[Rfam]
RNA sequence: CUCACAACUCCAUACUUCUUUACAUUCCAUAGCUGUAGAUAACUUAUGGCACGUAAGGAAGCACGGAGCCGUAAG
Numbered sequence: 001c002u003c004a005c006a007a008c009u010c011c012a013u014a015c016u017u018c019u020u021u022a023c024a025u026u027c028c029a030u031a032g033c034u035g036u037a038g039a040u041a042a043c044u045u046a047u048g049g050c051a052c053g054u055a056a057g058g059a060a061g062c063a064c065g066g067a068g069c070c071g072u073a074a075g
Stems, first nucleotide, its partner, number of pairs: 008068004013063001015061009025051001027049005

The family of this 75-nucleotide sequence from Portunus trituberculatus is "mir-1 microRNA precursor family". Pairs were carried over by alignment from the consensus structure, which was predicted with RNAalifold. Gene Ontology terms of the family: RISC complex and miRNA-mediated post-transcriptional gene silencing. The literature on the family includes a 2001 paper in Science by Lee and Ambros, "An extensive class of small RNAs in Caenorhabditis elegans". Rfam's curators write: This family represents the microRNA (miRNA) mir-1 family. miRNAs are transcribed as ~70nt precursors (modelled here) and subsequently processed by the Dicer enzyme to give a ~22nt product. In this case the mature sequence comes from the 3' arm of the precursor. Rfam 15.1 lists 4,474 matches to the family in 965 species.